[Rfam]
Rfam assigns this 266-nucleotide RNA sequence from Desulfuribacillus alkaliarsenatis to the family "Bacterial large signal recognition particle RNA".
RNA sequence: UCGUGCUAGAUGGGGAGGUAGCGGUGCCCUGUAACCCGCAAUCCGCUAUAGCGGGAUUGAUGCCUGCUCUGAGGUGCUAUUACGUGUAGUCUGACCCAUGUAAGUGGCGUUGACGACUGGGUCUUGUGCAACGGAAACUCGUGAACCCCGUCAGGUCCGGAAGGAAGCAGCGGUAAGUGAAUCUUUUCGUGUGCCGCAGGGUAGCCUGGUCUGAGUUAACUGCAUGGGUAACGUACGGGUGAUAGUCAUCGAAGGCAGGUGCACGA
Numbered sequence: 001u002c003g004u005g006c007u008a009g010a011u012g013g014g015g016a017g018g019u020a021g022c023g024g025u026g027c028c029c030u031g032u033a034a035c036c037c038g039c040a041a042u043c044c045g046c047u048a049u050a051g052c053g054g055g056a057u058u059g060a061u062g063c064c065u066g067c068u069c070u071g072a073g074g075u076g077c078u079a080u081u082a083c084g085u086g087u088a089g090u091c092u093g094a095c096c097c098a099u100g101u102a103a104g105u106g107g108c109g110u111u112g113a114c115g116a117c118u119g120g121g122u123c124u125u126g127u128g129c130a131a132c133g134g135a136a137a138c139u140c141g142u143g144a145a146c147c148c149c150g151u152c153a154g155g156u157c158c159g160g161a162a163g164g165a166a167g168c169a170g171c172g173g174u175a176a177g178u179g180a181a182u183c184u185u186u187u188c189g190u191g192u193g194c195c196g197c198a199g200g201g202u203a204g205c206c207u208g209g210u211c212u213g214a215g216u217u218a219a220c221u222g223c224a225u226g227g228g229u230a231a232c233g234u235a236c237g238g239g240u241g242a243u244a245g246u247c248a249u250c251g252a253a254g255g256c257a258g259g260u261g262c263a264c265g266a
Stems, first nucleotide, its partner, number of pairs: 001266006009058003012030004017025001019023001035055005063259005069254002073250004079243005085237004092230002096227006104220002106217003115211008123200006129191002132189005137182001139180004148173004156165003